[Rfam]
Nucleotides: 056
Stems, first nucleotide, its partner, number of pairs: 001022003005018005026056003030053007
Number, partner (000 for none) and nucleotide at each position: 001022c002021c003020g004000g005018g006017a007016g008015g009014c010000g011000u012000c013000c014009g015008c016007c017006u018005c019000g020003c021002g022001g023000g024000a025000a026056c027055u028054g029000a030053c031052a032051u033050c034049g035048g036047u037000a038000c039000c040000u041000g042000a043000u044000a045000c046000g047036g048035c049034c050033g051032g052031u053030g054028c055027a056026g